[Rfam]
RNA sequence: GACCCAUCCAGAGCGGCCGAGUGACCUGGCACGACGACGCCGCAGCAACCCCCUCGCGACGAGGUGAGGGUGCUACCGCCAGGACCGAUGGAAC
Numbered sequence: 001g002a003c004c005c006a007u008c009c010a011g012a013g014c015g016g017c018c019g020a021g022u023g024a025c026c027u028g029g030c031a032c033g034a035c036g037a038c039g040c041c042g043c044a045g046c047a048a049c050c051c052c053c054u055c056g057c058g059a060c061g062a063g064g065u066g067a068g069g070g071u072g073c074u075a076c077c078g079c080c081a082g083g084a085c086c087g088a089u090g091g092a093a094c
Base pairs, nucleotide, nucleotide: 001094004091005090006089007088008087013043014042015041016040017039021032022031023030026082027081028080029079044074045073046072047071049070050069051066053064054063078086
The record is a 94-nucleotide RNA from Sanguibacter suaedae, which matches "SAM riboswitch aptamer (S box leader)" in Rfam. The SAM riboswitch is found upstream of a number of genes which code for proteins involved in methionine or cysteine biosynthesis in Gram-positive bacteria. The family's consensus secondary structure is taken from published work. NCBI's taxonomy places the organism under Bacteria, Actinomycetota, Actinomycetes, Micrococcales, Sanguibacter. Its Rfam clan is "SAM clan".